[Rfam]
RNA sequence: UAAGUCCUCUGCAUGAUAAAGGCUAGCGACCAGUCAUGGCCCCGAGUCAUGCGUCGGCCCGUCGUAAGGCGGGCGGCGAAGCGUUGACAGGGGUACUGGCAGGCCGGGCUAUUGAGCUCCGAAAUCACCUCAUCCGGGUUGCCGACCUUGUGGUCUGAUGGGGAAGGCAGCACGCUGGAGUGCGCUAACGCAAGUGCUCCGGUGAACCCGCGGAGUCGUAGAACC
Numbered sequence: 001u002a003a004g005u006c007c008u009c010u011g012c013a014u015g016a017u018a019a020a021g022g023c024u025a026g027c028g029a030c031c032a033g034u035c036a037u038g039g040c041c042c043c044g045a046g047u048c049a050u051g052c053g054u055c056g057g058c059c060c061g062u063c064g065u066a067a068g069g070c071g072g073g074c075g076g077c078g079a080a081g082c083g084u085u086g087a088c089a090g091g092g093g094u095a096c097u098g099g100c101a102g103g104c105c106g107g108g109c110u111a112u113u114g115a116g117c118u119c120c121g122a123a124a125u126c127a128c129c130u131c132a133u134c135c136g137g138g139u140u141g142c143c144g145a146c147c148u149u150g151u152g153g154u155c156u157g158a159u160g161g162g163g164a165a166g167g168c169a170g171c172a173c174g175c176u177g178g179a180g181u182g183c184g185c186u187a188a189c190g191c192a193a194g195u196g197c198u199c200c201g202g203u204g205a206a207c208c209c210g211c212g213g214a215g216u217c218g219u220a221g222a223a224c225c
Stems, first nucleotide, its partner, number of pairs: 012038005021031002024193001026191002040093004046088004050083002052078004057074007114217001116216006135210006141168003146162003173204011

The family of this 225-nucleotide RNA sequence from delta proteobacterium MLMS-1 is "Group II catalytic intron D1-D4-6". The base pairs follow the family's consensus structure. Rfam's curators write: Group II introns are found in rRNA, tRNA and mRNA of organelles in fungi, plants and protists, and also in mRNA in bacteria. Rfam's curators put it in the seed alignment. Rfam links the family to the GO term Group II intron splicing.